[Rfam]
RNA sequence: UCCAUCGUGAGGUGGAAUCUGAAGGAAGCCGAUGGCAAAACGCUGGUCUGACGAACAGAAACCGCAUACGAGGCGGCCAUGACGGACAAGAGGGCAAUGAGACUCAAAGUCCAGUUCUUGCACGGAAGUCAUGGUCGUAGAUGCGGCAGACAUAAGCGCGGAGGUCAGUGCG
Numbered sequence: 001u002c003c004a005u006c007g008u009g010a011g012g013u014g015g016a017a018u019c020u021g022a023a024g025g026a027a028g029c030c031g032a033u034g035g036c037a038a039a040a041c042g043c044u045g046g047u048c049u050g051a052c053g054a055a056c057a058g059a060a061a062c063c064g065c066a067u068a069c070g071a072g073g074c075g076g077c078c079a080u081g082a083c084g085g086a087c088a089a090g091a092g093g094g095c096a097a098u099g100a101g102a103c104u105c106a107a108a109g110u111c112c113a114g115u116u117c118u119u120g121c122a123c124g125g126a127a128g129u130c131a132u133g134g135u136c137g138u139a140g141a142u143g144c145g146g147c148a149g150a151c152a153u154a155a156g157c158g159c160g161g162a163g164g165u166c167a168g169u170g171c172g
Stems, first nucleotide, its partner, number of pairs: 001016006030170002035165002041158004046151005062146006073138003077134007084112004090105003
RNA: Group II catalytic intron D1-D4-3